[Rfam]
RNA sequence: AUUCGUUCUCGGGGCGGGGUGAAACUCCCCACCGGCGGUAAGAACUAACAGUUCAAGCCCGCGAGCGCUUUCGAAAAUUCGAAAGGUCAGCAGAUCUGGUGUGAAUCCAGAGCCGACGGUUAUAGUCCGGAUGAUAGAGAAUGGGU
Numbered sequence: 001a002u003u004c005g006u007u008c009u010c011g012g013g014g015c016g017g018g019g020u021g022a023a024a025c026u027c028c029c030c031a032c033c034g035g036c037g038g039u040a041a042g043a044a045c046u047a048a049c050a051g052u053u054c055a056a057g058c059c060c061g062c063g064a065g066c067g068c069u070u071u072c073g074a075a076a077a078u079u080c081g082a083a084a085g086g087u088c089a090g091c092a093g094a095u096c097u098g099g100u101g102u103g104a105a106u107c108c109a110g111a112g113c114c115g116a117c118g119g120u121u122a123u124a125g126u127c128c129g130g131a132u133g134a135u136a137g138a139g140a141a142u143g144g145g146u
Base pairs, nucleotide, nucleotide: 003144004143005142006141007140008139009138010137017029018028019027031126032125033115034114035062036061037060038059057113058112065091066090095111096110097109098108099107117129118128119127

Overview:
The family of this 146-nucleotide RNA sequence from Marinomonas mediterranea is "FMN riboswitch aptamer (RFN element)". Rfam links the family to the GO term FMN binding. Taxonomically the source falls in Marinomonas mediterranea (Bacteria, Pseudomonadati, Gammaproteobacteria, Oceanospirillaceae).